Annotation:
The family of this 153-nucleotide sequence from Paracoccus amoyensis is "Ruegeria cis2 sRNA". It is annotated as a small RNA. Rfam links the family to the GO term regulation of gene expression. On this family, see Rivers et al., Front Microbiol 2016: "Experimental Identification of Small Non-Coding RNAs in the Model Marine Bacterium Ruegeria pomeroyi DSS-3".
RNA sequence: AUCGGUCUUGUGCGGGCUGUAAUUGAUAAAGACGAAACCUCGCGUCUGGUCGAUGACAUGAAAUAGCGGGUUCCACAGAAACCACAUGAUGAAGGCAUUGGGGAUCAGGUUCGCGACGAACAUCUUGCCCGAACCGAACAUGUUGAUCCGCUG
Number, nucleotide and partner (000 for none) at each position: 001a000002u035003c034004g033005g000006u032007c031008u030009u029010g000011u000012g000013c025014g024015g023016g000017c000018u000019g000020u000021a000022a000023u015024u014025g013026a000027u000028a000029a009030a008031g007032a006033c004034g003035a002036a000037a000038c000039c055040u000041c052042g051043c000044g000045u000046c000047u000048g000049g000050u000051c042052g041053a000054u000055g039056a000057c000058a000059u000060g000061a000062a000063a000064u153065a152066g151067c150068g149069g000070g082071u081072u080073c000074c000075a000076c000077a000078g000079a000080a072081a071082c070083c000084a000085c000086a147087u146088g000089a144090u000091g000092a141093a000094g139095g000096c000097a000098u000099u133100g000101g130102g129103g000104a000105u127106c000107a125108g124109g123110u122111u119112c118113g117114c000115g000116a000117c113118g112119a111120a000121c000122a110123u109124c108125u107126u000127g105128c000129c102130c101131g000132a000133a099134c000135c000136g000137a000138a000139c094140a000141u092142g000143u000144u089145g000146a087147u086148c000149c068150g067151c066152u065153g064
It scores 51 bits against the family's covariance model.